The family of this 126-nucleotide RNA from Puccinia coronata is "Nematode snoRNA ceN39". Gene Ontology terms of the family: nucleolus and RNA processing.
[Rfam]
RNA sequence: CUGGAGGGGCCAAAACCCCUUCAAGAUCAUUCUGGAGGGGCCAAAACCCCUCCAGAAUCAUUUUUGGAGGGGCCAAAGCCCCUCCAGAAUCAUUUUUGGAGGGGCCAAAGCCCCUCCAGAAUCAUU
Numbered sequence: 001c002u003g004g005a006g007g008g009g010c011c012a013a014a015a016c017c018c019c020u021u022c023a024a025g026a027u028c029a030u031u032c033u034g035g036a037g038g039g040g041c042c043a044a045a046a047c048c049c050c051u052c053c054a055g056a057a058u059c060a061u062u063u064u065u066g067g068a069g070g071g072g073c074c075a076a077a078g079c080c081c082c083u084c085c086a087g088a089a090u091c092a093u094u095u096u097u098g099g100a101g102g103g104g105c106c107a108a109a110g111c112c113c114c115u116c117c118a119g120a121a122u123c124a125u126u
Stems, first nucleotide, its partner, number of pairs: 003053005016040008025032002065118008078105002081102005087097003
It scores 38 bits against the family's covariance model. NCBI's taxonomy places the organism under Eukaryota, Pucciniomycotina, Pucciniales, Pucciniaceae, Puccinia coronata var. avenae. By type it is an H/ACA-box small nucleolar RNA.